The family of this 135-nucleotide RNA sequence is "skipping-rope RNA". Pairs were carried over by alignment from the consensus structure, which is taken from published work.

RNA sequence: AUUAAUUGAGGGCAGAAAGGUUCCUGCCGCACCUAACUUGAGGCAUUAAUUAAGAUGUCGGUACUAUUUUAUAGUUGUAAAUCUUGCAUUUACAUAGGUAUCUGAGAUGUUGGGUACACCGUCCAACCAAUUAAU
Numbered sequence: 001a002u003u004a005a006u007u008g009a010g011g012g013c014a015g016a017a018a019g020g021u022u023c024c025u026g027c028c029g030c031a032c033c034u035a036a037c038u039u040g041a042g043g044c045a046u047u048a049a050u051u052a053a054g055a056u057g058u059c060g061g062u063a064c065u066a067u068u069u070u071a072u073a074g075u076u077g078u079a080a081a082u083c084u085u086g087c088a089u090u091u092a093c094a095u096a097g098g099u100a101u102c103u104g105a106g107a108u109g110u111u112g113g114g115u116a117c118a119c120c121g122u123c124c125a126a127c128c129a130a131u132u133a134a135u
Stems, first nucleotide, its partner, number of pairs: 001135008011028005019120003030104001031099004109127005